[Rfam]
RNA sequence: ACCCUCCGGUUCCCUUUCCCAUCGGAUCUGAACACCGAUCUUGGUGGUCGUAGAGGAGGAAGAGUAACAGUGAGGCUGGCCUCAUGGUGCUUGUAACCUGUGGGCCAGUUUCAGACAAGG
Numbered sequence: 001a002c003c004c005u006c007c008g009g010u011u012c013c014c015u016u017u018c019c020c021a022u023c024g025g026a027u028c029u030g031a032a033c034a035c036c037g038a039u040c041u042u043g044g045u046g047g048u049c050g051u052a053g054a055g056g057a058g059g060a061a062g063a064g065u066a067a068c069a070g071u072g073a074g075g076c077u078g079g080c081c082u083c084a085u086g087g088u089g090c091u092u093g094u095a096a097c098c099u100g101u102g103g104g105c106c107a108g109u110u111u112c113a114g115a116c117a118a119g120g
Stems, first nucleotide, its partner, number of pairs: 003059005019047005025040004076108007
A member of the RNA family "Small nucleolar RNA SNORA61" from Pipistrellus kuhlii, 120 nucleotides long. Rfam describes the family as follows. ACA61 is a member of the H/ACA class of snoRNA that guide the sites of modification of uridines to pseudouridines. The family's RNA type in Rfam is H/ACA-box small nucleolar RNA.